Rfam assigns this 138-nucleotide RNA from Gopherus evgoodei to the family "Small nucleolar RNA SNORA9". The family's consensus secondary structure was predicted with PFOLD. Rfam's curators write: ACA9 is a member of the H/ACA class of snoRNA that guide the sites of modification of uridines to pseudouridines. Gene Ontology terms of the family: nucleolus and RNA processing. Its Rfam clan is "SNORA9 clan".
RNA sequence: CCGCAAGCCUUCCAGCAUGGCUGGGUCUGCCUUGUGACCCUGCUCAUUCCUGUAGAGCUUGCAAGAGCAGACCUGAGAUGGUUUGAGGCCUUGCUCUGCUCCCACUUCGGAGUGAGGUUAUAGAAAUUUCAGACACUC
Numbered sequence: 001c002c003g004c005a006a007g008c009c010u011u012c013c014a015g016c017a018u019g020g021c022u023g024g025g026u027c028u029g030c031c032u033u034g035u036g037a038c039c040c041u042g043c044u045c046a047u048u049c050c051u052g053u054a055g056a057g058c059u060u061g062c063a064a065g066a067g068c069a070g071a072c073c074u075g076a077g078a079u080g081g082u083u084u085g086a087g088g089c090c091u092u093g094c095u096c097u098g099c100u101c102c103c104a105c106u107u108c109g110g111a112g113u114g115a116g117g118u119u120a121u122a123g124a125a126a127u128u129u130c131a132g133a134c135a136c137u138c
Stems, first nucleotide, its partner, number of pairs: 003062006018046003023040005074131005089117006096110003
The match comes from Rfam's covariance-model search (121 bits).